The record is a 68-nucleotide RNA sequence from Salvator merianae, which matches "mir-367 microRNA precursor family" in Rfam. It scores 70 bits against the family's covariance model. A reference for the family is Mineno et al. (2006), "The expression profile of microRNAs in mouse embryos", Nucleic Acids Res. Pairs were carried over by alignment from the consensus structure, which was predicted with RNAalifold. NCBI's taxonomy places the organism under Eukaryota, Chordata, Bifurcata, Teiioidea, Salvator. Gene Ontology terms of the family: miRNA-mediated post-transcriptional gene silencing and RISC complex. Rfam 15.1 lists 541 matches to the family in 513 species.

[Rfam]
RNA sequence: UGUUUACUGUUGCUAAUCUGCAAGCCUGUUAUGUAAAAUCUAGAAUUGCACUUUAGCAAUGGUGAAGG
Numbered sequence: 001u002g003u004u005u006a007c008u009g010u011u012g013c014u015a016a017u018c019u020g021c022a023a024g025c026c027u028g029u030u031a032u033g034u035a036a037a038a039u040c041u042a043g044a045a046u047u048g049c050a051c052u053u054u055a056g057c058a059a060u061g062g063u064g065a066a067g068g
Base pairs, nucleotide, nucleotide: 005064006063007062008061009060010059011058012057013056014055015054016053019050020049021048022047023046026043027042028041